[Rfam]
RNA sequence: AACUGGCUUAAUCUCAGCUGGCAACUGUGAGUGCUUAAUGGUUUCCCCCACAGUGGUUGCUGGGAUUAUGCUAAAC
Numbered sequence: 001a002a003c004u005g006g007c008u009u010a011a012u013c014u015c016a017g018c019u020g021g022c023a024a025c026u027g028u029g030a031g032u033g034c035u036u037a038a039u040g041g042u043u044u045c046c047c048c049c050a051c052a053g054u055g056g057u058u059g060c061u062g063g064g065a066u067u068a069u070g071c072u073a074a075a076c
Stems, first nucleotide, its partner, number of pairs: 004073004009068009020058003023054001026052004031047001

The record is a 76-nucleotide RNA sequence from Callorhinchus milii, which matches "mir-216 microRNA precursor family" in Rfam. NCBI's taxonomy places the organism under Eukaryota, Opisthokonta, Chordata, Chimaeriformes, Callorhinchus. The literature on the family includes a 2008 paper in Gene by Shao et al., "Identification of novel chicken microRNAs and analysis of their genomic organization".